Annotation: Rfam assigns this 161-nucleotide RNA sequence from a Peptococcaceae bacterium to the family "glmS glucosamine-6-phosphate activated ribozyme aptamer". A reference for the family is Jansen et al. (2006), "Backbone and nucleobase contacts to glucosamine-6-phosphate in the glmS ribozyme", Nat Struct Mol Biol. The family's RNA type in Rfam is riboswitch. NCBI's taxonomy places the organism under Bacteria, Bacillati, Bacillota, Clostridia, Peptococcaceae.

RNA sequence: UCUCUACUGUAAGCGCCUGAGCUCUUGGCUGUGGCCGGGAGCUGACGAGGUGGGGGUUUAUCGAUUUUUCGGCGGAUACCCCCCAGCCACUAGGGGUGGCUGCGAGCCCUGUCUGAAAUCGGCUGAGCAAUUGGUCGGACAAAGACCGGGCACCCUAUAAU
Numbered sequence: 001u002c003u004c005u006a007c008u009g010u011a012a013g014c015g016c017c018u019g020a021g022c023u024c025u026u027g028g029c030u031g032u033g034g035c036c037g038g039g040a041g042c043u044g045a046c047g048a049g050g051u052g053g054g055g056g057u058u059u060a061u062c063g064a065u066u067u068u069u070c071g072g073c074g075g076a077u078a079c080c081c082c083c084c085a086g087c088c089a090c091u092a093g094g095g096g097u098g099g100c101u102g103c104g105a106g107c108c109c110u111g112u113c114u115g116a117a118a119u120c121g122g123c124u125g126a127g128c129a130a131u132u133g134g135u136c137g138g139a140c141a142a143a144g145a146c147c148g149g150g151c152a153c154c155c156u157a158u159a160a161u
Stems, first nucleotide, its partner, number of pairs: 020043008029034001052083005061072004084102006106151004111146002120137007